Background
The record is a 93-nucleotide sequence from Chloroflexia bacterium SDU3-3, which matches "TPP riboswitch aptamer (THI element)" in Rfam. Vitamin B(1) in its active form thiamin pyrophosphate (TPP) is an essential coenzyme that is synthesised by coupling of pyrimidine and thiazole moieties in bacteria.
RNA sequence: CGAUAGCGGCUGGGGUGCCCGAGAGGGCUGAGAGCAUACCCAUCGAACCUGAUCUGGAUCAUGCCAGCGAAGGGAGCCUGCCGAUGAUUCCUG
Numbered sequence: 001c002g003a004u005a006g007c008g009g010c011u012g013g014g015g016u017g018c019c020c021g022a023g024a025g026g027g028c029u030g031a032g033a034g035c036a037u038a039c040c041c042a043u044c045g046a047a048c049c050u051g052a053u054c055u056g057g058a059u060c061a062u063g064c065c066a067g068c069g070a071a072g073g074g075a076g077c078c079u080g081c082c083g084a085u086g087a088u089u090c091c092u093g
Base pairs, nucleotide, nucleotide: 006081007080008079009078011042012041013040014039016036017028018027019026020025048073049072050071054067055066056065057064